[Rfam]
RNA sequence: AAAAUGUCCCCUAAGUUUUGUAACUGUAGCAGUUUUGGCUCCUCAAGGCCAAUUUUUGGUAAAAAAAAAUAACACGUGGCACCUCACUUAGGGUGCCACGUUAGUGUAGACGGAGUCAAAAUUGGCAUUGGCGGCCAAAACUGCCACAGAUGCAAAACUUAGGGGGGUUUU
Numbered sequence: 001a002a003a004a005u006g007u008c009c010c011c012u013a014a015g016u017u018u019u020g021u022a023a024c025u026g027u028a029g030c031a032g033u034u035u036u037g038g039c040u041c042c043u044c045a046a047g048g049c050c051a052a053u054u055u056u057u058g059g060u061a062a063a064a065a066a067a068a069a070u071a072a073c074a075c076g077u078g079g080c081a082c083c084u085c086a087c088u089u090a091g092g093g094u095g096c097c098a099c100g101u102u103a104g105u106g107u108a109g110a111c112g113g114a115g116u117c118a119a120a121a122u123u124g125g126c127a128u129u130g131g132c133g134g135c136c137a138a139a140a141c142u143g144c145c146a147c148a149g150a151u152g153c154a155a156a157a158c159u160u161a162g163g164g165g166g167g168u169u170u171u
Base pairs, nucleotide, nucleotide: 002171004169007166008165012161013160014159015158016157017156018155019154020153021152022151024149025148026147027146029144030143031142032141033140034139035138036137037136038135039134040133042131044130045129046128074101075100077098078097079096080095081094082093083092
Shown here is a 171-nucleotide RNA from Medicago truncatula, a member of the family "MIR2619 microRNA precursor family". Taxonomically the source falls in Medicago (Eukaryota, eudicotyledons, Gunneridae, fabids).